[Rfam]
RNA sequence: UUCUUAUCCAGAGAGGUGGAGGGACUGACCCUACGAAACCUCGGCAACCAGCAUUUUAUGCCCGGUGCCAAUUUCAGAGGAAUAGUAUUAUUCCAAAGAUGAGAA
Numbered sequence: 001u002u003c004u005u006a007u008c009c010a011g012a013g014a015g016g017u018g019g020a021g022g023g024a025c026u027g028a029c030c031c032u033a034c035g036a037a038a039c040c041u042c043g044g045c046a047a048c049c050a051g052c053a054u055u056u057u058a059u060g061c062c063c064g065g066u067g068c069c070a071a072u073u074u075c076a077g078a079g080g081a082a083u084a085g086u087a088u089u090a091u092u093c094c095a096a097a098g099a100u101g102a103g104a105a
Base pairs, nucleotide, nucleotide: 001105002104003103004102005101006100007099008098013042014041015040016039017038021031022030023029025077026076027075028074043069044068045067046066048065049064051061052060053059073097079094080093081092082091083090